This 290-nucleotide RNA from Ceratodon purpureus belongs to the Rfam family "Plant signal recognition particle RNA". Pairs were carried over by alignment from the consensus structure, which is taken from published work. The literature on the family includes a 2002 paper in Curr Opin Struct Biol by Wild et al., "Towards the structure of the mammalian signal recognition particle".

RNA sequence: UCUGGGCGGGGUAGCGACCGCCUGUAACCCGAGCGGGGGAAGGAAGGUGCGGACGUGGGGCGCCAGGACCGGGCCUGCGGAGGCGUGUCGAGGGCCUGCCCGCUCCAAACAUGGAGUCUAUCGUUGGGGUCCUGCCGAAAGGCGGGGCUGCAGCGGUGUUACAGUGGAGGGCACCACGUCAGGCGGGCAACCGAGCAGCGUUCACUUCCCGCUCUGUGUAGUGGAGGGAUAACGGGCCUGAAUGUUCUGCGCAGAUCACCCUCCCUGGCAUGCUCCCGCGGACCACCUUC
Numbered sequence: 001u002c003u004g005g006g007c008g009g010g011g012u013a014g015c016g017a018c019c020g021c022c023u024g025u026a027a028c029c030c031g032a033g034c035g036g037g038g039g040a041a042g043g044a045a046g047g048u049g050c051g052g053a054c055g056u057g058g059g060g061c062g063c064c065a066g067g068a069c070c071g072g073g074c075c076u077g078c079g080g081a082g083g084c085g086u087g088u089c090g091a092g093g094g095c096c097u098g099c100c101c102g103c104u105c106c107a108a109a110c111a112u113g114g115a116g117u118c119u120a121u122c123g124u125u126g127g128g129g130u131c132c133u134g135c136c137g138a139a140a141g142g143c144g145g146g147g148c149u150g151c152a153g154c155g156g157u158g159u160u161a162c163a164g165u166g167g168a169g170g171g172c173a174c175c176a177c178g179u180c181a182g183g184c185g186g187g188c189a190a191c192c193g194a195g196c197a198g199c200g201u202u203c204a205c206u207u208c209c210c211g212c213u214c215u216g217u218g219u220a221g222u223g224g225a226g227g228g229a230u231a232a233c234g235g236g237c238c239u240g241a242a243u244g245u246u247c248u249g250c251g252c253a254g255a256u257c258a259c260c261c262u263c264c265c266u267g268g269c270a271u272g273c274u275c276c277c278g279c280g281g282a283c284c285a286c287c288u289u290c
Stems, first nucleotide, its partner, number of pairs: 001040003004023006028037003043290007051283001054280002057277002059274003062269006071263001072257002075254005081248003086241001092239007100228002103226005109219009119158008128149009159164001166209005176201004184193003